[Rfam]
RNA: MIR480 microRNA precursor family
Nucleotides: 145
Stems, first nucleotide, its partner, number of pairs: 004143001006141002008138002012134001014132001018128001024122002027118001029116006
Number, partner (000 for none) and nucleotide at each position: 001000u002000u003000a004143g005000u006141a007140a008138u009137a010000u011000g012134g013000g014132g015000u016000g017000g018128a019000u020000c021000c022000u023000u024122a025121u026000c027118u028000a029116u030115u031114u032113a033112u034111g035000a036000u037000a038000g039000a040000c041000c042000c043000a044000c045000a046000c047000c048000c049000a050000a051000c052000u053000g054000c055000u056000c057000a058000a059000a060000a061000u062000c063000a064000c065000u066000c067000g068000u069000u070000a071000u072000c073000g074000c075000a076000a077000a078000c079000c080000c081000g082000a083000c084000u085000a086000c087000a088000u089000c090000g091000a092000g093000u094000u095000u096000u097000c098000a099000c100000u101000u102000g103000u104000g105000a106000g107000c108000u109000c110000c111034u112033g113032u114031a115030a116029a117000a118027a119000u120000g121025a122024u123000u124000u125000g126000c127000c128018u129000c130000a131000u132014c133000u134012u135000u136000u137009u138008a139000a140007u141006u142000u143004u144000c145000a